This 83-nucleotide sequence from Zostera marina belongs to the Rfam family "Small nucleolar RNA R12". The literature on the family includes a 2003 paper in Nucleic Acids Res by Chen et al., "The high diversity of snoRNAs in plants: identification and comparative study of 120 snoRNA genes from Oryza sativa". Pairs were carried over by alignment from the consensus structure, which was predicted with PFOLD. Rfam classes the family as a C/D-box small nucleolar RNA. The family has 9 seed sequences and 992 matches in Rfam 15.1. Rfam links the family to the GO terms RNA processing and nucleolus. From the family's description: snoR12 is a C/D box small nucleolar RNA, which acts as a methylation guide for 25S ribosomal RNA in plants. snoR12 has been alternatively named snoZ44 in Arabidopsis and snoZ131 in rice. A search with the family's covariance model found it, with a score of 92 bits.

[Rfam]
Nucleotides: 083
Base pairs, nucleotide, nucleotide: 001083002082003081004080005079
Number, partner (000 for none) and nucleotide at each position: 001083a002082u003081g004080u005079g006000g007000g008000u009000g010000a011000u012000g013000a014000a015000a016000a017000a018000a019000a020000u021000c022000g023000u024000u025000c026000g027000g028000a029000u030000u031000c032000c033000c034000u035000a036000u037000g038000a039000u040000u041000u042000c043000c044000u045000u046000u047000u048000g049000g050000a051000a052000a053000u054000g055000u056000g057000a058000u059000u060000c061000c062000u063000a064000a065000c066000c067000a068000g069000c070000u071000a072000c073000u074000u075000c076000u077000g078000a079005c080004g081003c082002a083001u